[Rfam]
Shown here is a 137-nucleotide RNA sequence, a member of the family "Small nucleolar RNA SNORA75".
From the family's description: U23 belongs to the H/ACA class of snoRNAs. snoRNAs bind a number of proteins (including dyskerin, Gar1p and Nop10p in the case of the H/ACA class) to form snoRNP complexes. This class are thought to guide the sites of modification of uridines to pseudouridines by forming direct base pairing interactions with substrate RNAs.
RNA sequence: GUCUUCUCAUUGAGCUCCUUUCUGUCUAUCAGUGGCAGUUUAUGGAUUCGCACGAGAAGAAGAGAGAAUUCACAGAACUAGCAUUAUUUUACCUUCUGUCUUUACAGAGGUAUAUUUAGCUGUAUUGUGAGACAUUC
Numbered sequence: 001g002u003c004u005u006c007u008c009a010u011u012g013a014g015c016u017c018c019u020u021u022c023u024g025u026c027u028a029u030c031a032g033u034g035g036c037a038g039u040u041u042a043u044g045g046a047u048u049c050g051c052a053c054g055a056g057a058a059g060a061a062g063a064g065a066g067a068a069u070u071c072a073c074a075g076a077a078c079u080a081g082c083a084u085u086a087u088u089u090u091a092c093c094u095u096c097u098g099u100c101u102u103u104a105c106a107g108a109g110g111u112a113u114a115u116u117u118a119g120c121u122g123u124a125u126u127g128u129g130a131g132a133c134a135u136u137c
Stems, first nucleotide, its partner, number of pairs: 003059006014051002016046003022038005070130006093110006